[Rfam]
RNA sequence: UUAUUUUUAUAUAAAAUUUCUUGUAUAAUAGCUUUAAUGUGGUAAGCAAGUUUCUACCCCAUAACCGUAAAUUUUGGGACUACGAGAUUAAAUAGAAUUUUU
Number, nucleotide and partner (000 for none) at each position: 001u000002u000003a000004u000005u000006u000007u000008u000009a000010u000011a000012u000013a000014a000015a000016a000017u000018u000019u087020c086021u085022u084023g083024u082025a081026u000027a000028a000029u049030a000031g047032c046033u045034u044035u000036a000037a000038u000039g000040u000041g000042g000043u000044a034045a033046g032047c031048a000049a029050g000051u000052u000053u000054c000055u000056a000057c000058c078059c077060c076061a075062u000063a073064a072065c000066c000067g000068u000069a000070a000071a000072u064073u063074u000075u061076g060077g059078g058079a000080c000081u025082a024083c023084g022085a021086g020087a019088u000089u000090a000091a000092a000093u000094a000095g000096a000097a000098u000099u000100u000101u000102u000
Shown here is a 102-nucleotide RNA sequence from Clostridium sp. CAG:307, a member of the family "Purine riboswitch aptamer". A search with the family's covariance model found it, with a score of 77 bits.